The family of this 203-nucleotide sequence from Waltiozyma mucosa is "Small nucleolar RNA snR34". A search with the family's covariance model found it, with a score of 47 bits. The source organism's lineage runs through Eukaryota, Opisthokonta, Fungi, Saccharomycotina and Waltiozyma. The family is grouped with related families in Rfam's "SNORA65 clan".

RNA sequence: AAUCAAAAAGUAUAAUAUUUCUGGAAGCAUUUGCCACGAUGAUUUAACAGUUCCUAAGUUAAUUCAUUGCCAUUCUUGGGAUUGCAGUCCCAUAAUGAUCGCAUCCUAGAUCAAUUUUUUUCAAUCCUGGAUAGGAAGUUUGGAUAUCGAUGUGUCUCUUUGUUGAGGCGAUGAAAUCUGAAUGUCGAUGAAAGGAUAAAUCU
Numbered sequence: 001a002a003u004c005a006a007a008a009a010g011u012a013u014a015a016u017a018u019u020u021c022u023g024g025a026a027g028c029a030u031u032u033g034c035c036a037c038g039a040u041g042a043u044u045u046a047a048c049a050g051u052u053c054c055u056a057a058g059u060u061a062a063u064u065c066a067u068u069g070c071c072a073u074u075c076u077u078g079g080g081a082u083u084g085c086a087g088u089c090c091c092a093u094a095a096u097g098a099u100c101g102c103a104u105c106c107u108a109g110a111u112c113a114a115u116u117u118u119u120u121u122c123a124a125u126c127c128u129g130g131a132u133a134g135g136a137a138g139u140u141u142g143g144a145u146a147u148c149g150a151u152g153u154g155u156c157u158c159u160u161u162g163u164u165g166a167g168g169c170g171a172u173g174a175a176a177u178c179u180g181a182a183u184g185u186c187g188a189u190g191a192a193a194g195g196a197u198a199a200a201u202c203u
Stems, first nucleotide, its partner, number of pairs: 026077002038068003042064001044062002049060004115194003121191002138183004143178001145176001147174002153170006